[Rfam]
Nucleotides: 080
Stems, first nucleotide, its partner, number of pairs: 013066006020059009033050004
Number, partner (000 for none) and nucleotide at each position: 001000u002000g003000g004000g005000g006000c007000c008000u009000g010000a011000a012000c013066c014065u015064g016063g017062c018061a019000u020059a021058c022057a023056a024055u025054g026053u027052a028051g029000a030000a031000u032000u033050c034049u035048g036047u037000u038000u039000g040000u041000u042000a043000a044000g045000c046000a047036a048035c049034a050033g051028c052027u053026a054025c055024a056023u057022u058021g059020u060000c061018u062017g063016c064015u065014g066013g067000g068000u069000u070000u071000c072000a073000g074000g075000c076000u077000g078000u079000c080000u
Shown here is an 80-nucleotide RNA sequence from Anolis carolinensis, a member of the family "mir-221 microRNA precursor family".
Its family is annotated with miRNA-mediated post-transcriptional gene silencing and RISC complex in the Gene Ontology.
It is one of the family's seed sequences.